[Rfam]
RNA sequence: ACUCGGCAAGACUGGCACGGCACCUGCAAUAACCCCAUCAACAAUUUACAAAAGCGCGCGCCUCAACGACGAGGAGCGCACUUCCCGAUCGAUCGGGACUUGGACAAAGGGGGGCCCCCCCGGCAACCGGCGGGACGCC
Numbered sequence: 001a002c003u004c005g006g007c008a009a010g011a012c013u014g015g016c017a018c019g020g021c022a023c024c025u026g027c028a029a030u031a032a033c034c035c036c037a038u039c040a041a042c043a044a045u046u047u048a049c050a051a052a053a054g055c056g057c058g059c060g061c062c063u064c065a066a067c068g069a070c071g072a073g074g075a076g077c078g079c080a081c082u083u084c085c086c087g088a089u090c091g092a093u094c095g096g097g098a099c100u101u102g103g104a105c106a107a108a109g110g111g112g113g114g115c116c117c118c119c120c121c122g123g124c125a126a127c128c129g130g131c132g133g134g135a136c137g138c139c
Stems, first nucleotide, its partner, number of pairs: 013106002015027003054081001056079003061074001063072002083098005110139002113136001115134002118132001120130004

This 139-nucleotide RNA from Pseudomonas knackmussii belongs to the Rfam family "Pseudomonas sRNA P11". The source organism's lineage runs through Bacteria, Pseudomonadati, Pseudomonadaceae, Pseudomonas and Pseudomonas knackmussii. It is annotated as a non-coding RNA gene. Rfam's curators write: This small RNA (sRNA) was computationally identified in the genome of the opportunistic pathogen Pseudomonas aeruginosa and its expression verified by northern blot analysis. P11 is located between a putative threonine protein kinase and putative nitrate reductase and appears to be conserved in several Pseudomonas species. P11 has a predicted Rho independent terminator at the 3'end but the function of P11 is unknown.